[Rfam]
RNA sequence: CCUUGUUGCCUUUCUUGGACGUUUCCUCCCUAAACUUGAGCCCCAGCUUCGUGCUGGGGCUUUUUUUUGGCGGAUU
Numbered sequence: 001c002c003u004u005g006u007u008g009c010c011u012u013u014c015u016u017g018g019a020c021g022u023u024u025c026c027u028c029c030c031u032a033a034a035c036u037u038g039a040g041c042c043c044c045a046g047c048u049u050c051g052u053g054c055u056g057g058g059g060c061u062u063u064u065u066u067u068u069g070g071c072g073g074a075u076u
Stems, first nucleotide, its partner, number of pairs: 008020001010018002039061009